Notes
This 104-nucleotide RNA sequence from Oryza brachyantha belongs to the Rfam family "mir-166 microRNA precursor family". Pairs were carried over by alignment from the consensus structure, which was predicted with PFOLD. A reference for the family is Reinhart et al. (2002), "MicroRNAs in plants", Genes Dev. From the family's description: This family represents the plant microRNA (miRNA) precursor mir-166.
RNA sequence: GUUGAGGGGAAUGUUGUCUGGUUCGAGACCUAACACCGGGCGGAUUCAGCUGCGGCAAAGCUAGCUGGGUGGGCGGUUUCGGACCAGGCUUCAUUCCCCCCAAC
Numbered sequence: 001g002u003u004g005a006g007g008g009g010a011a012u013g014u015u016g017u018c019u020g021g022u023u024c025g026a027g028a029c030c031u032a033a034c035a036c037c038g039g040g041c042g043g044a045u046u047c048a049g050c051u052g053c054g055g056c057a058a059a060g061c062u063a064g065c066u067g068g069g070u071g072g073g074c075g076g077u078u079u080c081g082g083a084c085c086a087g088g089c090u091u092c093a094u095u096c097c098c099c100c101c102a103a104c
Stems, first nucleotide, its partner, number of pairs: 001104004006099008016089006024081003